Rfam assigns this 84-nucleotide RNA sequence to the family "skipping-rope RNA". It is one of the family's seed sequences.
RNA sequence: UGAAGUAGAGGACAGAACGGGCAGCUGUCGCCGGAUGGAGUUAAUCCUGAUUAGGAGAUGUGGGAAUGUCACCCCACCUAUUCA
Numbered sequence: 001u002g003a004a005g006u007a008g009a010g011g012a013c014a015g016a017a018c019g020g021g022c023a024g025c026u027g028u029c030g031c032c033g034g035a036u037g038g039a040g041u042u043a044a045u046c047c048u049g050a051u052u053a054g055g056a057g058a059u060g061u062g063g064g065a066a067u068g069u070c071a072c073c074c075c076a077c078c079u080a081u082u083c084a
Stems, first nucleotide, its partner, number of pairs: 001084004006080003011029005020070004031055001033047004060077005